Shown here is a 99-nucleotide RNA sequence from Halovibrio salipaludis, a member of the family "Guanidine-I riboswitch aptamer". About the family: This family represents a conserved RNA structure found upstream of the ykkC and yxkD genes in Bacillus subtilis and related genes in other bacteria.
RNA sequence: CAAAUGGACAGCUAGGGUUCCGGCCACACCGACGUGGCGUCUGGUCCGAGAGCGGUCGACCUUCUGAAGGUUACACGGCGGGACAAAAGCCCGGGAGGA
Number, nucleotide and partner (000 for none) at each position: 001c000002a000003a000004a000005u000006g000007g057008a056009c055010a000011g053012c052013u000014a000015g047016g046017g000018u000019u000020c044021c043022g041023g038024c037025c036026a035027c034028a000029c000030c000031g000032a000033c000034g027035u026036g025037g024038c023039g000040u000041c022042u000043g021044g020045u000046c016047c015048g000049a000050g000051a000052g012053c011054g000055g009056u008057c007058g072059a071060c070061c069062u068063u067064c000065u000066g000067a063068a062069g061070g060071u059072u058073a000074c094075a000076c097077g000078g000079c000080g092081g091082g090083a000084c000085a000086a000087a000088a000089g000090c082091c081092c080093g000094g074095g000096a000097g076098g000099a000